Rfam assigns this 90-nucleotide sequence from Halobacillus salinus to the family "tRNA". The source organism's lineage runs through Bacteria, Bacillati, Bacillota, Bacillaceae and Halobacillus. The family has 954 seed sequences and 5,335,975 matches in Rfam 15.1. By type it is a transfer RNA.
[Rfam]
RNA sequence: GGAGGAGUACUCAAGUUUGGCUGAAGAGAGCGGUCUUGAAAACCGCCAGGGGGUUAACGCCCCGCGGGGGUUCGAAUCCCUCCUCCUCCG
Numbered sequence: 001g002g003a004g005g006a007g008u009a010c011u012c013a014a015g016u017u018u019g020g021c022u023g024a025a026g027a028g029a030g031c032g033g034u035c036u037u038g039a040a041a042a043c044c045g046c047c048a049g050g051g052g053g054u055u056a057a058c059g060c061c062c063c064g065c066g067g068g069g070g071u072u073c074g075a076a077u078c079c080c081u082c083c084u085c086c087u088c089c090g
Stems, first nucleotide, its partner, number of pairs: 001089007010028003030046005066082005